The record is a 176-nucleotide sequence from Dichanthelium oligosanthes, which matches "MIR2118 microRNA precursor family" in Rfam.

RNA sequence: GCUGGGAAGAGGAAGAAAGAGAGCGCUCAAGAGCAGUGGGAAUGGGAACAUGGAGGAAACCCUACCUGUUUAUUAAUUUCCUCCUCCAGAAAUAGAGGUGGAAAGCUUUGGUUGGGUGUUUCCCGGUGCCUCCCAUUCCUAUCGUUCUUGAGCGCUCCUUCCUCUUCCUUUUGGCU
Numbered sequence: 001g002c003u004g005g006g007a008a009g010a011g012g013a014a015g016a017a018a019g020a021g022a023g024c025g026c027u028c029a030a031g032a033g034c035a036g037u038g039g040g041a042a043u044g045g046g047a048a049c050a051u052g053g054a055g056g057a058a059a060c061c062c063u064a065c066c067u068g069u070u071u072a073u074u075a076a077u078u079u080c081c082u083c084c085u086c087c088a089g090a091a092a093u094a095g096a097g098g099u100g101g102a103a104a105g106c107u108u109u110g111g112u113u114g115g116g117u118g119u120u121u122c123c124c125g126g127u128g129c130c131u132c133c134c135a136u137u138c139c140u141a142u143c144g145u146u147c148u149u150g151a152g153c154g155c156u157c158c159u160u161c162c163u164c165u166u167c168c169u170u171u172u173g174g175c176u
Base pairs, nucleotide, nucleotide: 009167010166011165012164013163015161016160017159021157022156023155026152027151028150029149030148031147032146033145034144037141038140039139040138041137042136043135044134045133046132047131049128050127051126053124055123056122057121058120059119060118
Annotation:
Pairs were carried over by alignment from the consensus structure, which was predicted with RNAalifold. Taxonomically the source falls in Dichanthelium (Eukaryota, Streptophyta, Tracheophyta, Mesangiospermae).